The family of this 254-nucleotide RNA from Trifolium subterraneum is "MIR2655 microRNA precursor family". The family's consensus secondary structure was predicted with RNAalifold. A search with the family's covariance model found it, with a score of 132 bits. Rfam 15.1 lists 892 matches to the family in 5 species. Rfam links the family to the GO terms RISC complex and miRNA-mediated post-transcriptional gene silencing.

RNA sequence: CCCUUAUCUUUAUUUUAGGUUUCAAGUUGGUCCCUUAUCUUUUUUUUAGGUUUCAAGUUGGUCCCUUCCGUCAAUUUUUUAACUGUUACCGUUAAUUCUGGACACGUGUCACAUGUUCAAGUAUGCCACGUGUCCAUAUUAGUUUGCCAUGUGUCCAAAUUUAACGGAAAUAGUUAAAAAAUUGACGGAAGGGACCAACUUGAAACCUAAAAUAAAGAUAAGGGACCAACUUGAAACUUUUAAAAGAUAAGGGA
Numbered sequence: 001c002c003c004u005u006a007u008c009u010u011u012a013u014u015u016u017a018g019g020u021u022u023c024a025a026g027u028u029g030g031u032c033c034c035u036u037a038u039c040u041u042u043u044u045u046u047u048a049g050g051u052u053u054c055a056a057g058u059u060g061g062u063c064c065c066u067u068c069c070g071u072c073a074a075u076u077u078u079u080u081a082a083c084u085g086u087u088a089c090c091g092u093u094a095a096u097u098c099u100g101g102a103c104a105c106g107u108g109u110c111a112c113a114u115g116u117u118c119a120a121g122u123a124u125g126c127c128a129c130g131u132g133u134c135c136a137u138a139u140u141a142g143u144u145u146g147c148c149a150u151g152u153g154u155c156c157a158a159a160u161u162u163a164a165c166g167g168a169a170a171u172a173g174u175u176a177a178a179a180a181a182u183u184g185a186c187g188g189a190a191g192g193g194a195c196c197a198a199c200u201u202g203a204a205a206c207c208u209a210a211a212a213u214a215a216a217g218a219u220a221a222g223g224g225a226c227c228a229a230c231u232u233g234a235a236a237c238u239u240u241u242a243a244a245a246g247a248u249a250a251g252g253g254a
Stems, first nucleotide, its partner, number of pairs: 002252007025231003029227003033223010044212002047209003
Dot-bracket structure: .(((((((................(((.(((.((((((((((.((.(((.............................................................................................................................................................))).)).)))))))))).))).)))..............)))))))..